About this RNA
The family of this 67-nucleotide RNA sequence from Salibacterium salarium is "Bacillaceae-1 RNA". By type it is a small RNA. Pairs were carried over by alignment from the consensus structure, which is taken from published work.
RNA sequence: AGGAAAGGUAGAUCGGCUUAAAACGGCACGUCCUAUGCCAACGCCAAUCUGACCCGCAUCCUGCAGG
Numbered sequence: 001a002g003g004a005a006a007g008g009u010a011g012a013u014c015g016g017c018u019u020a021a022a023a024c025g026g027c028a029c030g031u032c033c034u035a036u037g038c039c040a041a042c043g044c045c046a047a048u049c050u051g052a053c054c055c056g057c058a059u060c061c062u063g064c065a066g067g
Stems, first nucleotide, its partner, number of pairs: 011049003015045003025039004053067002056064002